[Rfam]
RNA sequence: AAGACUAUACUUUCAGGGAUCAUUUCUAUAGUUCGUUACUAGAGAAGUUUCUCUGACUGUGUAGAGCACCCGAAACCACGAGGAGGAGACGUAGCGUUCUCUCCUGAGCGUGAAGCCGGCUCUUAGUGUUGCUUCCUGCAACUGCUAUUGGCCAUUGAUGAUCGUUCUCGAGCCUCUCUGAGGUUCGAGAGGGAGAGAACGCAGUCUGAGUGGU
Numbered sequence: 001a002a003g004a005c006u007a008u009a010c011u012u013u014c015a016g017g018g019a020u021c022a023u024u025u026c027u028a029u030a031g032u033u034c035g036u037u038a039c040u041a042g043a044g045a046a047g048u049u050u051c052u053c054u055g056a057c058u059g060u061g062u063a064g065a066g067c068a069c070c071c072g073a074a075a076c077c078a079c080g081a082g083g084a085g086g087a088g089a090c091g092u093a094g095c096g097u098u099c100u101c102u103c104c105u106g107a108g109c110g111u112g113a114a115g116c117c118g119g120c121u122c123u124u125a126g127u128g129u130u131g132c133u134u135c136c137u138g139c140a141a142c143u144g145c146u147a148u149u150g151g152c153c154a155u156u157g158a159u160g161a162u163c164g165u166u167c168u169c170g171a172g173c174c175u176c177u178c179u180g181a182g183g184u185u186c187g188a189g190a191g192g193g194a195g196a197g198a199a200c201g202c203a204g205u206c207u208g209a210g211u212g213g214u
Stems, first nucleotide, its partner, number of pairs: 002040002006035001009032003015027004049065002054061001075214005094202012108165003118153004124147004128142005168188009